[Rfam]
RNA sequence: CUGUCUCACGCUUCAACCGUGUUUGGACAGAACAG
Numbered sequence: 001c002u003g004u005c006u007c008a009c010g011c012u013u014c015a016a017c018c019g020u021g022u023u024u025g026g027a028c029a030g031a032a033c034a035g
Base pairs, nucleotide, nucleotide: 001035002034003033004032006031007030010028012027013026014025015024016023017021
Shown here is a 35-nucleotide RNA sequence from Myotis davidii, a member of the family "Iron response element I". The family's consensus secondary structure is taken from published work. Lineage of the source: Eukaryota > Amniota > Eutheria > Yangochiroptera > Myotis. The family has 62 seed sequences and 6,829 matches in Rfam 15.1.